[Rfam]
RNA sequence: UGUUCUCGACGGAGAACACCGAGUUGGCUGAAUAAUCCUUUUCCUAAAAGGGGAUAAAGCUAACAACUAGGUUAUAGUGACCACUCAAUGAUCCGAAUGGAUUGAGAGAACUAUCGUAACUGAUAGAGUUGUUGAAUAUGUGAUAAUAGAAUUGUAUUUAAGGCACAUAUUGGAGGUAAUACAAUAAUCCUUCACUCACCUU
Numbered sequence: 001u002g003u004u005c006u007c008g009a010c011g012g013a014g015a016a017c018a019c020c021g022a023g024u025u026g027g028c029u030g031a032a033u034a035a036u037c038c039u040u041u042u043c044c045u046a047a048a049a050g051g052g053g054a055u056a057a058a059g060c061u062a063a064c065a066a067c068u069a070g071g072u073u074a075u076a077g078u079g080a081c082c083a084c085u086c087a088a089u090g091a092u093c094c095g096a097a098u099g100g101a102u103u104g105a106g107a108g109a110a111c112u113a114u115c116g117u118a119a120c121u122g123a124u125a126g127a128g129u130u131g132u133u134g135a136a137u138a139u140g141u142g143a144u145a146a147u148a149g150a151a152u153u154g155u156a157u158u159u160a161a162g163g164c165a166c167a168u169a170u171u172g173g174a175g176g177u178a179a180u181a182c183a184a185u186a187a188u189c190c191u192u193c194a195c196u197c198a199c200c201u202u
Stems, first nucleotide, its partner, number of pairs: 001018006021197004027060002040054006063132006070082003078118001084108003089104006111126005136170007147160004152184004172193005
Shown here is a 202-nucleotide sequence, a member of the family "manA RNA". It is one of the family's seed sequences. From the family's description: manA RNA has been located in 5'UTR regions of genes of mannose or fructose metabolism.